[Rfam]
RNA sequence: CGAGAGAUUUCAUGGCUAAGGGACUUAGCAAAAUAGACCUGUACUUCCGGGAGAAAGGUCGCCCCAGCAAUGGGGGCGCAGUUGAAGAGGGUCCAGGCGAAUGUUUUUCAAAAACAGCAGGGCUCGCACAAAAUCGCAAGUGAAGUAUUAGGCCUCAGCCUGCCCGGUGCUGGAAGUUAAGAGAAGAUGUUAUCUUCCGGAGAAAGCAUUGAAUUGAAGCCCCCAGUAAACGGCGGCCGUUACUAGUAACGGUCUAAGGUAAGCGAAAAUUCCUUGUCGGGUAGUUCCGACCUGCACGAAUGGUACGUCUGGGACACUGUCUCAGCCAUGAGCUCGU
Number, nucleotide and partner (000 for none) at each position: 001c336002g335003a334004g333005a000006g000007a000008u000009u000010u331011c330012a329013u328014g327015g326016c325017u324018a000019a322020g321021g320022g000023a000024c000025u000026u000027a000028g000029c000030a000031a000032a000033a000034u000035a000036g060037a059038c058039c057040u056041g000042u000043a000044c051045u050046u000047c000048c000049g000050g045051g044052a000053g000054a000055a000056a040057g039058g038059u037060c036061g000062c075063c074064c073065c072066a071067g000068c000069a000070a000071u066072g065073g064074g063075g062076g000077c081078g000079c000080a000081g077082u000083u000084g000085a000086a000087g000088a000089g000090g000091g315092u314093c313094c312095a000096g310097g309098c307099g306100a000101a000102u116103g115104u114105u000106u000107u000108u000109c000110a000111a000112a000113a000114a104115c103116a102117g000118c000119a155120g154121g153122g000123c151124u150125c000126g148127c145128a000129c000130a000131a000132a000133a141134u000135c140136g000137c000138a000139a000140g135141u133142g000143a000144a000145g127146u000147a000148u126149u000150a124151g123152g000153c121154c120155u119156c000157a000158g304159c303160c302161u000162g234163c233164c232165c000166g000167g231168u230169g227170c226171u225172g224173g223174a000175a000176g220177u219178u000179a000180a000181g215182a214183g000184a000185a000186g210187a209188u208189g207190u206191u000192a000193u201194c200195u000196u000197c000198c000199g000200g194201a193202g000203a000204a000205a000206g190207c189208a188209u187210u186211g000212a000213a000214u182215u181216g000217a000218a000219g177220c176221c000222c000223c173224c172225a171226g170227u169228a000229a000230a168231c167232g164233g163234c162235g254236g253237c252238c251239g250240u249241u000242a000243c000244u000245a000246g000247u000248a000249a240250c239251g238252g237253u236254c235255u259256a000257a000258g000259g255260u000261a000262a000263g000264c000265g292266a000267a000268a000269a000270u000271u000272c000273c000274u000275u000276g291277u290278c289279g288280g287281g286282u000283a000284g000285u000286u281287c280288c279289g278290a277291c276292c265293u000294g000295c000296a000297c000298g000299a000300a000301u000302g160303g159304u158305a000306c099307g098308u000309c097310u096311g000312g094313g093314a092315c091316a000317c000318u000319g000320u021321c020322u019323c000324a017325g016326c015327c014328a013329u012330g011331a010332g000333c004334u003335c002336g001337u000
Bacterial large subunit ribosomal RNA: a 337-nucleotide part of an RNA.